[Rfam]
RNA sequence: GGUACUUGUACUCGUUGCGGUGCAACGAUGCUAAGAGA
Dot-bracket structure: .....(......((((((...))))))..)........